[Rfam]
RNA sequence: CUGCGUCGCCCUCCUUGGGCGUUUCCUCCCUAGACUUGGGCCGCCUCGUGCGGCCCUUUUUUUUGCCUUUC
Numbered sequence: 001c002u003g004c005g006u007c008g009c010c011c012u013c014c015u016u017g018g019g020c021g022u023u024u025c026c027u028c029c030c031u032a033g034a035c036u037u038g039g040g041c042c043g044c045c046u047c048g049u050g051c052g053g054c055c056c057u058u059u060u061u062u063u064u065g066c067c068u069u070u071c
Stems, first nucleotide, its partner, number of pairs: 008020004038056007
Dot-bracket structure: .......((((.....)))).................(((((((.....)))))))...............

Shown here is a 71-nucleotide RNA sequence from Allobosea sp. Root381, a member of the family "Makes More Granules Regulator RNA (mmgR)". The pairing is the family consensus, mapped onto this sequence. NCBI's taxonomy places the organism under Bacteria, Pseudomonadota, Hyphomicrobiales, Alloboseaceae, Allobosea. It is annotated as a small RNA.